[Rfam]
RNA sequence: GGGAAUAGAUGAGUGCUGGUGUGCUCUCUAGUCUUCAAAACUAGUACGGGGGGUUAGUAGCCUCCUGGGUGGGUUCGAUUCCCACGUAUUCCC
Numbered sequence: 001g002g003g004a005a006u007a008g009a010u011g012a013g014u015g016c017u018g019g020u021g022u023g024c025u026c027u028c029u030a031g032u033c034u035u036c037a038a039a040a041c042u043a044g045u046a047c048g049g050g051g052g053g054u055u056a057g058u059a060g061c062c063u064c065c066u067g068g069g070u071g072g073g074u075u076c077g078a079u080u081c082c083c084a085c086g087u088a089u090u091c092c093c
Stems, first nucleotide, its partner, number of pairs: 001093007008085001011026006028044005047067005070084004
Notes
The family of this 93-nucleotide RNA from Gottschalkia acidurici is "Selenocysteine transfer RNA". A search with the family's covariance model found it, with a score of 72 bits. For this family Rfam cites "Eukaryotic selenocysteine tRNA has the 9/4 secondary structure" (Mizutani and Goto, FEBS Lett, 2000).